[Rfam]
RNA: Mammalian CPEB3 ribozyme
Organism: Clupea harengus
RNA sequence: UGAUCAGCCACGGGGAUCAUGGUAGAAGCGUUCACGUUCACGAUCCCUGUCAGGUCUCACAAACCUGCGAAUUCUACC
Numbered sequence: 001u002g003a004u005c006a007g008c009c010a011c012g013g014g015g016a017u018c019a020u021g022g023u024a025g026a027a028g029c030g031u032u033c034a035c036g037u038u039c040a041c042g043a044u045c046c047c048u049g050u051c052a053g054g055u056c057u058c059a060c061a062a063a064c065c066u067g068c069g070a071a072u073u074c075u076a077c078c
Stems, first nucleotide, its partner, number of pairs: 013047006021078007028041001030039001051067005057061001